[Rfam]
RNA sequence: UAGGUAGGAUUAUUUGAGGGUCUCUUAAAGAGUAAUCUUUAAGCACACAUUGGGUGAAUUGCUGGAACUUCCUUAAGAUGUUUCUCUACAACGAAGUUCGAAAGGACAGGCGUGAAGGAUUGAAAAGCAAACAGAUUGGAUAAUCAGCAGCCAAGCUCCUGGAUCGAAAGGUUGGAGAAGGUUCAACGACUAGAGUAUACCACCUAAGCAGUUGACAAUUGAUAGUGGAUAGUUGACAGUUAAAAACAUUACUAUCAUUUAAAAAUUUGUAUGGUGAUGAAACUCGUAGGGAUGAGGUUUCCCGAAGUGCCCAACCCCAGAAGACAGUUGAAAGUUGAGAGUCGAUAGUGGAAAGUUAAAAAAUUCCUAUCAAUCUUAAGCAUAAAUUGAUUAUGGGUGAAGAUAUAGUCUGGCAAUGAUUGAAAGGUCAUU
Numbered sequence: 001u002a003g004g005u006a007g008g009a010u011u012a013u014u015u016g017a018g019g020g021u022c023u024c025u026u027a028a029a030g031a032g033u034a035a036u037c038u039u040u041a042a043g044c045a046c047a048c049a050u051u052g053g054g055u056g057a058a059u060u061g062c063u064g065g066a067a068c069u070u071c072c073u074u075a076a077g078a079u080g081u082u083u084c085u086c087u088a089c090a091a092c093g094a095a096g097u098u099c100g101a102a103a104g105g106a107c108a109g110g111c112g113u114g115a116a117g118g119a120u121u122g123a124a125a126a127g128c129a130a131a132c133a134g135a136u137u138g139g140a141u142a143a144u145c146a147g148c149a150g151c152c153a154a155g156c157u158c159c160u161g162g163a164u165c166g167a168a169a170g171g172u173u174g175g176a177g178a179a180g181g182u183u184c185a186a187c188g189a190c191u192a193g194a195g196u197a198u199a200c201c202a203c204c205u206a207a208g209c210a211g212u213u214g215a216c217a218a219u220u221g222a223u224a225g226u227g228g229a230u231a232g233u234u235g236a237c238a239g240u241u242a243a244a245a246a247c248a249u250u251a252c253u254a255u256c257a258u259u260u261a262a263a264a265a266u267u268u269g270u271a272u273g274g275u276g277a278u279g280a281a282a283c284u285c286g287u288a289g290g291g292a293u294g295a296g297g298u299u300u301c302c303c304g305a306a307g308u309g310c311c312c313a314a315c316c317c318c319a320g321a322a323g324a325c326a327g328u329u330g331a332a333a334g335u336u337g338a339g340a341g342u343c344g345a346u347a348g349u350g351g352a353a354a355g356u357u358a359a360a361a362a363a364u365u366c367c368u369a370u371c372a373a374u375c376u377u378a379a380g381c382a383u384a385a386a387u388u389g390a391u392u393a394u395g396g397g398u399g400a401a402g403a404u405a406u407a408g409u410c411u412g413g414c415a416a417u418g419a420u421u422g423a424a425a426g427g428u429c430a431u432u
Base pairs, nucleotide, nucleotide: 007023008022009021010020011019013017029038030037031036050314051313052312053311055309056308060149061148062147063146064145065144070140071139072138150182151181157175158174164171165170186411188410189409190408191407192406316397317396318395319394321392322391417430418429419428420427421426
A member of the RNA family "Group I catalytic intron" from Clostridium pasteurianum, 432 nucleotides long. NCBI's taxonomy places the organism under Bacteria, Bacillota, Clostridia, Clostridiaceae, Clostridium pasteurianum. Its family is annotated with Group I intron splicing in the Gene Ontology. From the family's description: Group I catalytic introns are large self-splicing ribozymes. They catalyse their own excision from mRNA, tRNA and rRNA precursors in a wide range of organisms. The core secondary structure consists of 9 paired regions (P1-P9). These fold to essentially two domains - the P4-P6 domain (formed from the stacking of P5, P4, P6 and P6a helices) and the P3-P9 domain (formed from the P8, P3, P7 and P9 helices).